[Rfam]
RNA sequence: GAAGGAGCAAUACCUACCCUCUUGAUAGAACAAGAACUUGGGUAUUGCUCCUUCAACU
Numbered sequence: 001g002a003a004g005g006a007g008c009a010a011u012a013c014c015u016a017c018c019c020u021c022u023u024g025a026u027a028g029a030a031c032a033a034g035a036a037c038u039u040g041g042g043u044a045u046u047g048c049u050c051c052u053u054c055a056a057c058u
Stems, first nucleotide, its partner, number of pairs: 001054014020035005
RNA: Plastid-psbA-3 3UTR RNA